[Rfam]
RNA sequence: AAACAACCCCCUAUGUUUUAAUUUUUUGGCAGUUUUGGACCCCCAUUUCAUUGUUGACUUGGUCAAUGCUGACGUGGCACCCUACGUGAGGUGCCACGUGUCAAAUUUUUUAUUAUUUUUUUGCCUUGGGGGUCCAAAACUGCCAAAGAAUCAAAACAUAGGGGGUUGUUU
Numbered sequence: 001a002a003a004c005a006a007c008c009c010c011c012u013a014u015g016u017u018u019u020a021a022u023u024u025u026u027u028g029g030c031a032g033u034u035u036u037g038g039a040c041c042c043c044c045a046u047u048u049c050a051u052u053g054u055u056g057a058c059u060u061g062g063u064c065a066a067u068g069c070u071g072a073c074g075u076g077g078c079a080c081c082c083u084a085c086g087u088g089a090g091g092u093g094c095c096a097c098g099u100g101u102c103a104a105a106u107u108u109u110u111u112a113u114u115a116u117u118u119u120u121u122u123g124c125c126u127u128g129g130g131g132g133u134c135c136a137a138a139a140c141u142g143c144c145a146a147a148g149a150a151u152c153a154a155a156a157c158a159u160a161g162g163g164g165g166u167u168g169u170u171u
Stems, first nucleotide, its partner, number of pairs: 001171002004168005012160008021151025072099002075096007
Source information:
The record is a 171-nucleotide RNA sequence from Medicago truncatula, which matches "MIR2619 microRNA precursor family" in Rfam. Its family is annotated with RISC complex and miRNA-mediated post-transcriptional gene silencing in the Gene Ontology. NCBI's taxonomy places the organism under Eukaryota, Embryophyta, Tracheophyta, Fabaceae, Medicago. It scores 120 bits against the family's covariance model.